[Rfam]
RNA sequence: CGAAGGUGCCUUCCUCUCCUGGCGAACAACGGUGUCGAUAACCAUGAUUCUCCAUGCAGGGCAGGCACUUUCGUCUUAACGCACGCCGACGAUCACAGACCUACUCGCGGAUUCGGGUCAG
Numbered sequence: 001c002g003a004a005g006g007u008g009c010c011u012u013c014c015u016c017u018c019c020u021g022g023c024g025a026a027c028a029a030c031g032g033u034g035u036c037g038a039u040a041a042c043c044a045u046g047a048u049u050c051u052c053c054a055u056g057c058a059g060g061g062c063a064g065g066c067a068c069u070u071u072c073g074u075c076u077u078a079a080c081g082c083a084c085g086c087c088g089a090c091g092a093u094c095a096c097a098g099a100c101c102u103a104c105u106c107g108c109g110g111a112u113u114c115g116g117g118u119c120a121g
Stems, first nucleotide, its partner, number of pairs: 002072010013061001015060003019056001020054003024050003029045001031043003098119005
A member of the RNA family "Actinobacteria sRNA Ms_IGR-7" from Mycobacterium helveticum, 121 nucleotides long. It is annotated as a small RNA. The organism belongs to Mycobacterium, within Bacteria. A reference for the family is Li et al. (2013), "Identification of small RNAs in Mycobacterium smegmatis using heterologous Hfq", RNA. The match comes from Rfam's covariance-model search (45 bits).